[Rfam]
Shown here is a 399-nucleotide sequence from Pseudomonas sp. 21C1, a member of the family "Pseudomonas sRNA CrcZ". A search with the family's covariance model found it, with a score of 310 bits. The base pairs follow the family's consensus structure, which was predicted with WAR. The family's RNA type in Rfam is small RNA.

RNA sequence: AUAACAACAAUAACAAGCAAUGCACCACACACAAUAAAAACAAAACGCAACGGCUCUAGCACAAUAAGAACAAGACGGCAGAGGCGCAGCUAACUGAUUCUUUUGGAGAGGAAUGGCUUUUUUGGGGUUCGCCCCACACCAGACCGAGAACAAUAAAACUGUCCUGAGACAGCACCCGUACUGGUAAGACCGCAAGGUAAAAAAGCUCUGUCAGCAUCCAAAGAAAUCCGUUUGCUAUUGACUCCCCUUUGGGAGGUCUCCGGAAGCACGGCGCUUCCAGGAACGGGCAAUUGAACAAGAACAACAAGCCCGCAAUAACAAUAAAAUGAAGCACGCAUUACUUAGAGGGGAGCUUAGGCUCCCCUCAGUGCUUUCUGGCGUUUGACACCUGUCUUCCCU
Numbered sequence: 001a002u003a004a005c006a007a008c009a010a011u012a013a014c015a016a017g018c019a020a021u022g023c024a025c026c027a028c029a030c031a032c033a034a035u036a037a038a039a040a041c042a043a044a045a046c047g048c049a050a051c052g053g054c055u056c057u058a059g060c061a062c063a064a065u066a067a068g069a070a071c072a073a074g075a076c077g078g079c080a081g082a083g084g085c086g087c088a089g090c091u092a093a094c095u096g097a098u099u100c101u102u103u104u105g106g107a108g109a110g111g112a113a114u115g116g117c118u119u120u121u122u123u124g125g126g127g128u129u130c131g132c133c134c135c136a137c138a139c140c141a142g143a144c145c146g147a148g149a150a151c152a153a154u155a156a157a158a159c160u161g162u163c164c165u166g167a168g169a170c171a172g173c174a175c176c177c178g179u180a181c182u183g184g185u186a187a188g189a190c191c192g193c194a195a196g197g198u199a200a201a202a203a204a205g206c207u208c209u210g211u212c213a214g215c216a217u218c219c220a221a222a223g224a225a226a227u228c229c230g231u232u233u234g235c236u237a238u239u240g241a242c243u244c245c246c247c248u249u250u251g252g253g254a255g256g257u258c259u260c261c262g263g264a265a266g267c268a269c270g271g272c273g274c275u276u277c278c279a280g281g282a283a284c285g286g287g288c289a290a291u292u293g294a295a296c297a298a299g300a301a302c303a304a305c306a307a308g309c310c311c312g313c314a315a316u317a318a319c320a321a322u323a324a325a326a327u328g329a330a331g332c333a334c335g336c337a338u339u340a341c342u343u344a345g346a347g348g349g350g351a352g353c354u355u356a357g358g359c360u361c362c363c364c365u366c367a368g369u370g371c372u373u374u375c376u377g378g379c380g381u382u383u384g385a386c387a388c389c390u391g392u393c394u395u396c397c398c399u
Base pairs, nucleotide, nucleotide: 051086052085054083055082056081057080101223102222103221104220105219116215117214138185139184140183141182142181159172160171161170162169163168241257242256243255245253279381281379285311286310287309288308331371332370333369334368345366346365347364348363349362350361351360352359353358